A member of the RNA family "Actinobacteria sRNA Ms_IGR-5" from Xylanimonas oleitrophica, 215 nucleotides long.

[Rfam]
RNA sequence: ACAUCAGAAGGGAGGUGAUCCGAACAGUGAAUUCUCUUCGGACCGAUGAGGUGGCCGCGCGCUAGCGCGUCCUGAGCUUCGCGUCACCAGCCCCCGUCACGGGGCGGGUGACGCACGGGACCGGUAGCGAGACCAUCGCGACCACCGGAGCCCGCGGGUGCCGCGCCCUCGUCCAGCGCGGCGGGAGAUCUCCUCCACCCCGCGGGCUCUCCCAU
Numbered sequence: 001a002c003a004u005c006a007g008a009a010g011g012g013a014g015g016u017g018a019u020c021c022g023a024a025c026a027g028u029g030a031a032u033u034c035u036c037u038u039c040g041g042a043c044c045g046a047u048g049a050g051g052u053g054g055c056c057g058c059g060c061g062c063u064a065g066c067g068c069g070u071c072c073u074g075a076g077c078u079u080c081g082c083g084u085c086a087c088c089a090g091c092c093c094c095c096g097u098c099a100c101g102g103g104g105c106g107g108g109u110g111a112c113g114c115a116c117g118g119g120a121c122c123g124g125u126a127g128c129g130a131g132a133c134c135a136u137c138g139c140g141a142c143c144a145c146c147g148g149a150g151c152c153c154g155c156g157g158g159u160g161c162c163g164c165g166c167c168c169u170c171g172u173c174c175a176g177c178g179c180g181g182c183g184g185g186a187g188a189u190c191u192c193c194u195c196c197a198c199c200c201c202g203c204g205g206g207c208u209c210u211c212c213c214a215u
Stems, first nucleotide, its partner, number of pairs: 015058003019054001060129005066123001069121004074116001148209011161181006
The source organism's lineage runs through Bacteria, Actinomycetota, Micrococcales, Promicromonosporaceae and Xylanimonas.